[Rfam]
RNA: Small nucleolar RNA SNORA75
Organism: Sus scrofa
RNA sequence: GCCUUCUCAUUGAGCUCCUUUCUGUCGAUGGGUGACAGUUUAGGAUUCGCACGAGAAGAAGAGAGAAUUCACAGAGCUGCGUUGUUGCCUUCUGUCUUCACAGAGGUACAUUCAGCUGUUUUGUGAGACAGAC
Numbered sequence: 001g002c003c004u005u006c007u008c009a010u011u012g013a014g015c016u017c018c019u020u021u022c023u024g025u026c027g028a029u030g031g032g033u034g035a036c037a038g039u040u041u042a043g044g045a046u047u048c049g050c051a052c053g054a055g056a057a058g059a060a061g062a063g064a065g066a067a068u069u070c071a072c073a074g075a076g077c078u079g080c081g082u083u084g085u086u087g088c089c090u091u092c093u094g095u096c097u098u099c100a101c102a103g104a105g106g107u108a109c110a111u112u113c114a115g116c117u118g119u120u121u122u123g124u125g126a127g128a129c130a131g132a133c
Stems, first nucleotide, its partner, number of pairs: 003058006014050002016045003022038005069126006089106006